[Rfam]
RNA: Small nucleolar RNA SNORD74
RNA sequence: CCAUGCACUAAAUGAUGAAACUAAUGUUGGUAGGGACAUCUGAGUUAAAACUUGAGGAAACGCCAACUUUUCUGAACACAUGG
Numbered sequence: 001c002c003a004u005g006c007a008c009u010a011a012a013u014g015a016u017g018a019a020a021c022u023a024a025u026g027u028u029g030g031u032a033g034g035g036a037c038a039u040c041u042g043a044g045u046u047a048a049a050a051c052u053u054g055a056g057g058a059a060a061c062g063c064c065a066a067c068u069u070u071u072c073u074g075a076a077c078a079c080a081u082g083g
Stems, first nucleotide, its partner, number of pairs: 001083005